[Rfam]
RNA: Lysine riboswitch aptamer
Organism: Paramaledivibacter caminithermalis
RNA sequence: UUGUGAUAUAGAGGCUGCAGUUUGCAAAGAGUACUUCAGAUUAAACUUUUGGGGAAAUUAUUUCUCUGUAGGAAAGGUGCGACUGCCGAAACACAUUUCUAACCCCAUAGUUAUGUGUUGGGACUAUGCUGAACAAGUAUAGUACUGUCCCCAAUAGAUUGCCCAGUCUAUUGAUGGUGUGCUAUUUCACAC
Number, nucleotide and partner (000 for none) at each position: 001u000002u000003g000004u000005g000006a187007u000008a185009u184010a183011g182012a000013g000014g000015c000016u000017g086018c085019a084020g083021u082022u081023u000024g080025c079026a078027a000028a000029g000030a000031g000032u000033a000034c071035u070036u000037c068038a067039g066040a065041u000042u000043a000044a000045a000046c000047u000048u000049u000050u000051g000052g000053g000054g000055a000056a000057a000058u000059u000060a000061u000062u000063u000064c000065u040066c039067u038068g037069u000070a035071g034072g000073a000074a000075a000076g000077g000078u026079g025080c024081g022082a021083c020084u019085g018086c017087c000088g000089a000090a119091a118092c117093a116094c115095a114096u113097u000098u000099c110100u109101a108102a000103c000104c000105c000106c000107a000108u101109a100110g099111u000112u000113a096114u095115g094116u093117g092118u091119u090120g146121g145122g000123a143124c142125u141126a140127u139128g138129c137130u136131g000132a000133a000134c000135a000136a130137g129138u128139a127140u126141a125142g124143u123144a000145c121146u120147g000148u177149c176150c000151c000152c173153a172154a171155u170156a169157g168158a167159u000160u000161g000162c000163c000164c000165a000166g000167u158168c157169u156170a155171u154172u153173g152174a000175u000176g149177g148178u000179g000180u000181g000182c011183u010184a009185u008186u000187u006188c000189a000190c000191a000192c000